RNA sequence: CACUGCACGAUGAAACCAACUAUGGAUGAAUAGAGCUCUUUGCUCAAACUGUCCGAGAGCGCAAACCCCAUGUGGAUAGUUCCGUUGCCUUCCUUCUGACUUGCAUA
Numbered sequence: 001c002a003c004u005g006c007a008c009g010a011u012g013a014a015a016c017c018a019a020c021u022a023u024g025g026a027u028g029a030a031u032a033g034a035g036c037u038c039u040u041u042g043c044u045c046a047a048a049c050u051g052u053c054c055g056a057g058a059g060c061g062c063a064a065a066c067c068c069c070a071u072g073u074g075g076a077u078a079g080u081u082c083c084g085u086u087g088c089c090u091u092c093c094u095u096c097u098g099a100c101u102u103g104c105a106u107a
Base pairs, nucleotide, nucleotide: 004105005104023084024083025082026081